[Rfam]
The record is a 75-nucleotide sequence from Musa balbisiana, which matches "Plastid-clpP 5UTR RNA" in Rfam.
Rfam classes the family as a cis-regulatory element.
Rfam's curators write: Plastid clpP is a non-coding RNA (ncRNA) recognised in plastids. It was found in the prime untranslated region (5UTR) of a protease complex subunit (clpP) in plastids, suggesting a posible cis-regulatory function.
The match comes from Rfam's covariance-model search (56 bits).
The literature on the family includes a 2023 paper in Plant Commun by Richter et al., "Retrograde signaling in plants: A critical review focusing on the GUN pathway and beyond".
Pairs were carried over by alignment from the consensus structure, which was predicted with LocARNA.
RNA sequence: AAUUAUGUUCGUAAGCCCAACAAAGAGAAGCAGAUAUCUAUUCUAUACACGAUAAGUACCAAUUACCGAAUGGGA
Numbered sequence: 001a002a003u004u005a006u007g008u009u010c011g012u013a014a015g016c017c018c019a020a021c022a023a024a025g026a027g028a029a030g031c032a033g034a035u036a037u038c039u040a041u042u043c044u045a046u047a048c049a050c051g052a053u054a055a056g057u058a059c060c061a062a063u064u065a066c067c068g069a070a071u072g073g074g075a
Stems, first nucleotide, its partner, number of pairs: 003025002006022004010015001048074001050072001056066003
Dot-bracket structure: ..((.(((((....)...)))).))......................(.(.....(((.....))).....).).